RNA sequence: AAGCUAGCCAAUGUUUCUGUAGAAAUUUAGAAAAAGCUGGCAAUAGUAAUGCUGUAUCACAAGCCCUGAGGACAACCACAGUCAUUAAGGUCUCUGAAAAUGGCUACACUA
Numbered sequence: 001a002a003g004c005u006a007g008c009c010a011a012u013g014u015u016u017c018u019g020u021a022g023a024a025a026u027u028u029a030g031a032a033a034a035a036g037c038u039g040g041c042a043a044u045a046g047u048a049a050u051g052c053u054g055u056a057u058c059a060c061a062a063g064c065c066c067u068g069a070g071g072a073c074a075a076c077c078a079c080a081g082u083c084a085u086u087a088a089g090g091u092c093u094c095u096g097a098a099a100a101u102g103g104c105u106a107c108a109c110u111a
Stems, first nucleotide, its partner, number of pairs: 003041005016023002051104004063091003067087003071083003

Source information
Rfam assigns this 111-nucleotide sequence from Peromyscus maniculatus to the family "Small nucleolar RNA SNORA33". Pairs were carried over by alignment from the consensus structure, which was predicted with PFOLD. ACA33 is a member of the H/ACA class of snoRNA that guide the sites of modification of uridines to pseudouridines.